RAGATH-18 RNA: a 67-nucleotide sequence.
Rfam's curators put it in the seed alignment.
Pairs were carried over by alignment from the consensus structure, which is taken from published work.
By type it is a small RNA.
[Rfam]
Nucleotides: 067
Base pairs, nucleotide, nucleotide: 001065002064003063004062009054010053011052012051013050022049023048024047030042031041032040
Number, partner (000 for none) and nucleotide at each position: 001065c002064c003063u004062c005000u006000g007000g008000a009054g010053u011052g012051u013050u014000a015000u016000a017000u018000c019000a020000a021000a022049c023048g024047a025000a026000a027000g028000u029000a030042g031041u032040c033000g034000c035000a036000g037000u038000u039000u040032g041031g042030c043000a044000a045000a046000a047024u048023c049022g050013g051012a052011c053010a054009c055000g056000u057000u058000g059000a060000a061000c062004g063003a064002g065001g066000a067000a